[Rfam]
RNA sequence: UUUUCCGGAGCACAAACCCACACAUGCAUCGACACGAUGGCCUGGGUGCCCGCAAGGGUUGGUCAUUGGGAUGCGUGGAGGCCUAAC
Numbered sequence: 001u002u003u004u005c006c007g008g009a010g011c012a013c014a015a016a017c018c019c020a021c022a023c024a025u026g027c028a029u030c031g032a033c034a035c036g037a038u039g040g041c042c043u044g045g046g047u048g049c050c051c052g053c054a055a056g057g058g059u060u061g062g063u064c065a066u067u068g069g070g071a072u073g074c075g076u077g078g079a080g081g082c083c084u085a086a087c
Base pairs, nucleotide, nucleotide: 023077024076025075026074027073028072029071030070035068036067037066038065039064040063041062042061048059049058050057051056
The record is an 87-nucleotide RNA from Pseudomonas aeruginosa, which matches "t44 RNA" in Rfam. A reference for the family is Tjaden et al. (2002), "Transcriptome analysis of Escherichia coli using high-density oligonucleotide probe arrays", Nucleic Acids Res.